[Rfam]
RNA: mir-981 microRNA precursor family
RNA sequence: CCACACUGAAAUCGGGUUUCGCUAGCAGCGGACUGUCAUGAUAAAUGUGAAAAACAAACAAGUUCGUUGUCGACGAAACCUGCAUCAUGUGUCG
Numbered sequence: 001c002c003a004c005a006c007u008g009a010a011a012u013c014g015g016g017u018u019u020c021g022c023u024a025g026c027a028g029c030g031g032a033c034u035g036u037c038a039u040g041a042u043a044a045a046u047g048u049g050a051a052a053a054a055c056a057a058a059c060a061a062g063u064u065c066g067u068u069g070u071c072g073a074c075g076a077a078a079c080c081u082g083c084a085u086c087a088u089g090u091g092u093c094g
Stems, first nucleotide, its partner, number of pairs: 001094001003092004013082009030065005